A member of the RNA family "DUF3268 RNA", 120 nucleotides long.
RNA sequence: UAGCAGGGCUUGCGUCCAGGCUUUCGGUACGUCAGACGGUACCCUGACGUCAGACAUAUCCUGCGGAUAUGGAAUCGUUACGGAGACGCGCACACUGAGCGGAUCCACAAAGCGCAAGCU
Number, nucleotide and partner (000 for none) at each position: 001u000002a000003g000004c000005a000006g000007g120008g119009c118010u117011u116012g115013c114014g113015u112016c000017c000018a000019g000020g000021c000022u000023u000024u000025c077026g076027g075028u074029a050030c049031g048032u047033c046034a045035g044036a000037c000038g000039g000040u000041a000042c000043c000044c035045u034046g033047a032048c031049g030050u029051c000052a000053g000054a000055c071056a070057u069058a068059u067060c066061c065062u000063g000064c000065g061066g060067a059068u058069a057070u056071g055072g000073a000074a028075u027076c026077g025078u000079u000080a000081c000082g106083g105084a104085g000086a000087c101088g100089c099090g000091c000092a000093c000094a000095c000096u000097g000098a000099g089100c088101g087102g000103a000104u084105c083106c082107a000108c000109a000110a000111a000112g015113c014114g013115c012116a011117a010118g009119c008120u007
The sequence is in the family's curated seed alignment.